[Rfam]
RNA sequence: ACUUGCAUUACUGGGCCAAGUCUCAUUUGGCAGCAACCUUUACGCAUGUUUUGUAUUUAUGAGAUGCUGCCAAAUGAGAUUUGCCCAGCAAUGCAACA
Dot-bracket structure: ....(((((.((((((.((..((((..((((((((.............................))))))))..)))).)).)))))).)))))....
Numbered sequence: 001a002c003u004u005g006c007a008u009u010a011c012u013g014g015g016c017c018a019a020g021u022c023u024c025a026u027u028u029g030g031c032a033g034c035a036a037c038c039u040u041u042a043c044g045c046a047u048g049u050u051u052u053g054u055a056u057u058u059a060u061g062a063g064a065u066g067c068u069g070c071c072a073a074a075u076g077a078g079a080u081u082u083g084c085c086c087a088g089c090a091a092u093g094c095a096a097c098a
Stems, first nucleotide, its partner, number of pairs: 005094005011088006018081002022078004028072008
Shown here is a 98-nucleotide sequence from Rhynchospora breviuscula, a member of the family "mir-399 microRNA precursor family". NCBI's taxonomy places the organism under Eukaryota, Streptophyta, commelinids, Poales, Rhynchospora. For this family Rfam cites "Computational Identification of Plant MicroRNAs and Their Targets, Including a Stress-Induced miRNA" (Jones-Rhoades and Bartel, Mol Cell, 2004). Rfam describes the family as follows. mir-399 was identified in both Arabidopsis thaliana and Oryza sativa computationally and was later experimentally verified. mir-399 is thought to target mRNAs coding for a phosphatase transporter. Gene Ontology terms of the family: miRNA-mediated post-transcriptional gene silencing and RISC complex.